[Rfam]
RNA sequence: UCGGUUUGGAUUUCCCUCUCCUCCUCCCUGGGAAAUCCGAUCGCGGUUCGCUCCUCCUCCUCCCUGAGCGGACCGCACCCUGAAGAAACGGCGGCACCUCUUCCUCCUCCCUGAGGUGUCGCCGUCC
Numbered sequence: 001u002c003g004g005u006u007u008g009g010a011u012u013u014c015c016c017u018c019u020c021c022u023c024c025u026c027c028c029u030g031g032g033a034a035a036u037c038c039g040a041u042c043g044c045g046g047u048u049c050g051c052u053c054c055u056c057c058u059c060c061u062c063c064c065u066g067a068g069c070g071g072a073c074c075g076c077a078c079c080c081u082g083a084a085g086a087a088a089c090g091g092c093g094g095c096a097c098c099u100c101u102u103c104c105u106c107c108u109c110c111c112u113g114a115g116g117u118g119u120c121g122c123c124g125u126c127c
Stems, first nucleotide, its partner, number of pairs: 007039010044075010091122010